Annotation
A member of the RNA family "Small nucleolar RNA SNORD127" from Pelusios castaneus, 89 nucleotides long.
RNA sequence: UGGCAACAAUGAUGACAGGUUUUUCCCACUGUAUGUAAAGCAUUUUAUUGCUACAUGGAGACAAGAGUCCCUCUAAACUGACGUUGCCA
Numbered sequence: 001u002g003g004c005a006a007c008a009a010u011g012a013u014g015a016c017a018g019g020u021u022u023u024u025c026c027c028a029c030u031g032u033a034u035g036u037a038a039a040g041c042a043u044u045u046u047a048u049u050g051c052u053a054c055a056u057g058g059a060g061a062c063a064a065g066a067g068u069c070c071c072u073c074u075a076a077a078c079u080g081a082c083g084u085u086g087c088c089a
Base pairs, nucleotide, nucleotide: 001089002088003087004086005085006084007083

Background:
NCBI's taxonomy places the organism under Eukaryota, Craniata, Vertebrata, Euteleostomi, Pelusios. The family's consensus secondary structure was predicted with WAR. Its family is annotated with RNA processing and nucleolus in the Gene Ontology. It is annotated as a C/D-box small nucleolar RNA. The match comes from Rfam's covariance-model search (84 bits).